[Rfam]
RNA sequence: GCAAAUGCGGGUGAGAACCCCGCACACCGUAAGCCCAAGGAUUCCUGCGCCAUGGCAAUCAGCGCAGGGUGAGGCGGACCCUAAGACGAGGCCCCAGAGGCGUAGUCGAUGGACAGCAGGUCAAAAUUCCUGCCCCGUCUUUUAUCCGUUGAAGCAAUCAGGGACCCUGGAACGAAGCGCGAGCGGCUUUGUGGAUGGCCGUUCAAGGGCGUAGCGUAAGCGAGACCCGAGUACGAGGCAGCGGGGCAACCCAACGCCAAGUCGUGUGGAGUCGGCAGGCAAGAAAAGCUGAUUGUGGAGGAUAGGAGACGUCCGUACCGCAAACCGACACAGGUGGGCAAGGCGAGUAGCCUAAGGUGAA
Dot-bracket structure: .....((((((.......))))))((((....((((..((...((((((...((.....)).))))))......((((.((...(((.(.(((.....))).).)))...))...(((((........)))))..(((((((((((.......(..(((((....((((..((....(((((((((((........))))))(...(((....((....))....)))....).........(((....))).........)))))....))...)))).........)))))..)....)))))))))))))))..)).....((......)).)))).((((.....))))..))))..
Numbered sequence: 001g002c003a004a005a006u007g008c009g010g011g012u013g014a015g016a017a018c019c020c021c022g023c024a025c026a027c028c029g030u031a032a033g034c035c036c037a038a039g040g041a042u043u044c045c046u047g048c049g050c051c052a053u054g055g056c057a058a059u060c061a062g063c064g065c066a067g068g069g070u071g072a073g074g075c076g077g078a079c080c081c082u083a084a085g086a087c088g089a090g091g092c093c094c095c096a097g098a099g100g101c102g103u104a105g106u107c108g109a110u111g112g113a114c115a116g117c118a119g120g121u122c123a124a125a126a127u128u129c130c131u132g133c134c135c136c137g138u139c140u141u142u143u144a145u146c147c148g149u150u151g152a153a154g155c156a157a158u159c160a161g162g163g164a165c166c167c168u169g170g171a172a173c174g175a176a177g178c179g180c181g182a183g184c185g186g187c188u189u190u191g192u193g194g195a196u197g198g199c200c201g202u203u204c205a206a207g208g209g210c211g212u213a214g215c216g217u218a219a220g221c222g223a224g225a226c227c228c229g230a231g232u233a234c235g236a237g238g239c240a241g242c243g244g245g246g247c248a249a250c251c252c253a254a255c256g257c258c259a260a261g262u263c264g265u266g267u268g269g270a271g272u273c274g275g276c277a278g279g280c281a282a283g284a285a286a287a288g289c290u291g292a293u294u295g296u297g298g299a300g301g302a303u304a305g306g307a308g309a310c311g312u313c314c315g316u317a318c319c320g321c322a323a324a325c326c327g328a329c330a331c332a333g334g335u336g337g338g339c340a341a342g343g344c345g346a347g348u349a350g351c352c353u354a355a356g357g358u359g360a361a
Stems, first nucleotide, its partner, number of pairs: 006024006025359004033339004039319002044068006053061002075315004080112002085107003089103001091101003116133005136311011154296001157293005166279004172272002178266005183202006203233001207228003214221002243252003325334002341353004